[Rfam]
RNA sequence: AUUUCAUCAAGAGUUGGCUGAGGGACUGGCCCGAUGACGCCGCGGCAACCAUCGCAUUUUGCGAAACGGUGCCAAUUCCAUCAGGAUUUUUCCUGACAGAUGAAAG
Numbered sequence: 001a002u003u004u005c006a007u008c009a010a011g012a013g014u015u016g017g018c019u020g021a022g023g024g025a026c027u028g029g030c031c032c033g034a035u036g037a038c039g040c041c042g043c044g045g046c047a048a049c050c051a052u053c054g055c056a057u058u059u060u061g062c063g064a065a066a067c068g069g070u071g072c073c074a075a076u077u078c079c080a081u082c083a084g085g086a087u088u089u090u091u092c093c094u095g096a097c098a099g100a101u102g103a104a105a106g
Stems, first nucleotide, its partner, number of pairs: 002105007013043001015042004022032003027080003044073004049069002052064003077098001082095005